[Rfam]
RNA sequence: UCGCAGGCCGUGUCAAGCGGACGUGAUGGGGAUGGAGAACAGAGGGAUUUUUCCGCUUUCUUCCUCUGGCCAACGAAAUGGCAGCCGAGCUUCCCACCCAUCCGGCCC
Numbered sequence: 001u002c003g004c005a006g007g008c009c010g011u012g013u014c015a016a017g018c019g020g021a022c023g024u025g026a027u028g029g030g031g032a033u034g035g036a037g038a039a040c041a042g043a044g045g046g047a048u049u050u051u052u053c054c055g056c057u058u059u060c061u062u063c064c065u066c067u068g069g070c071c072a073a074c075g076a077a078a079u080g081g082c083a084g085c086c087g088a089g090c091u092u093c094c095c096a097c098c099c100a101u102c103c104g105g106c107c108c
Base pairs, nucleotide, nucleotide: 006107007106008105009104011023012022013021014020025102026101027100028099029098030097034093035092036091037090040068041067042066043065044064045063046062069082070081071080
Dot-bracket structure: .....((((.((((.....)))).((((((...((((..(((((((...............)))))))(((........))).......))))...)))))).)))).

Shown here is a 108-nucleotide RNA from Rhizobium sp. Leaf371, a member of the family "Rhizobiales sRNA Atu_At1". For this family Rfam cites "Deep sequencing uncovers numerous small RNAs on all four replicons of the plant pathogen Agrobacterium tumefaciens" (Wilms et al., RNA Biol, 2012). It is annotated as a small RNA.